The family of this 68-nucleotide RNA sequence from Equus caballus is "mir-188 microRNA precursor family". On this family, see Gu et al., FEBS Lett 2007: "Identification and characterization of microRNAs from the bovine adipose tissue and mammary gland". The source organism's lineage runs through Eukaryota, Opisthokonta, Bilateria, Sarcopterygii and Equus. Rfam's curators put it in the seed alignment.
RNA sequence: UCUCACAUCCCUUGCAUGGUGGAGGGUGAGCUUUCUGAAAACCCCUCCCACAUGCAGGGUUUGCAGGA
Numbered sequence: 001u002c003u004c005a006c007a008u009c010c011c012u013u014g015c016a017u018g019g020u021g022g023a024g025g026g027u028g029a030g031c032u033u034u035c036u037g038a039a040a041a042c043c044c045c046u047c048c049c050a051c052a053u054g055c056a057g058g059g060u061u062u063g064c065a066g067g068a
Stems, first nucleotide, its partner, number of pairs: 001068003006063002010059009021048006